[Rfam]
RNA sequence: UAUUUCCACAGGGGGAGCUGCUAAAAAGCGGCUGAGAGUGAAUGAAUGAGUUCUGACCCUAUGAACCUGUUAGUUAAUGCUAGCGUAGGGAUGUGGUUUUGAUGGAUA
Numbered sequence: 001u002a003u004u005u006c007c008a009c010a011g012g013g014g015g016a017g018c019u020g021c022u023a024a025a026a027a028g029c030g031g032c033u034g035a036g037a038g039u040g041a042a043u044g045a046a047u048g049a050g051u052u053c054u055g056a057c058c059c060u061a062u063g064a065a066c067c068u069g070u071u072a073g074u075u076a077a078u079g080c081u082a083g084c085g086u087a088g089g090g091a092u093g094u095g096g097u098u099u100u101g102a103u104g105g106a107u108a
Stems, first nucleotide, its partner, number of pairs: 006096005011060004016054001017032005040053004066089004070083004
The family of this 108-nucleotide sequence from Bacillus aquiflavi is "TPP riboswitch aptamer (THI element)". The base pairs follow the family's consensus structure, which is taken from published work. A reference for the family is Warner et al. (2014), "Validating fragment-based drug discovery for biological RNAs: lead fragments bind and remodel the TPP riboswitch specifically", Chem Biol. Taxonomically the source falls in Bacillus (Bacteria, Bacillota, Bacilli, Caryophanales). Rfam describes the family as follows. Vitamin B(1) in its active form thiamin pyrophosphate (TPP) is an essential coenzyme that is synthesised by coupling of pyrimidine and thiazole moieties in bacteria.